[Rfam]
The record is a 110-nucleotide RNA, which matches "SAM-I/IV (S-adenosyl methionine) riboswitch aptamer" in Rfam. The family's consensus secondary structure is taken from published work.

RNA sequence: AAUCAGCAUCUAGAAGCACCUCGAAAGAGGUGUGGCAACCGAGCCCACCAGGCCACGGUGCCUCCCAACAACGGGGAUGCGGCGCGACGAGCGCAAAAGAACUGGUGCUC
Numbered sequence: 001a002a003u004c005a006g007c008a009u010c011u012a013g014a015a016g017c018a019c020c021u022c023g024a025a026a027g028a029g030g031u032g033u034g035g036c037a038a039c040c041g042a043g044c045c046c047a048c049c050a051g052g053c054c055a056c057g058g059u060g061c062c063u064c065c066c067a068a069c070a071a072c073g074g075g076g077a078u079g080c081g082g083c084g085c086g087a088c089g090a091g092c093g094c095a096a097a098a099g100a101a102c103u104g105g106u107g108c109u110c
Base pairs, nucleotide, nucleotide: 006080007079008078009077010076015033017032018031019030020029021028034062035061036060039058040057041056043053044052048104082094083093084092085091
The literature on the family includes a 2008 paper in RNA by Weinberg et al., "The aptamer core of SAM-IV riboswitches mimics the ligand-binding site of SAM-I riboswitches".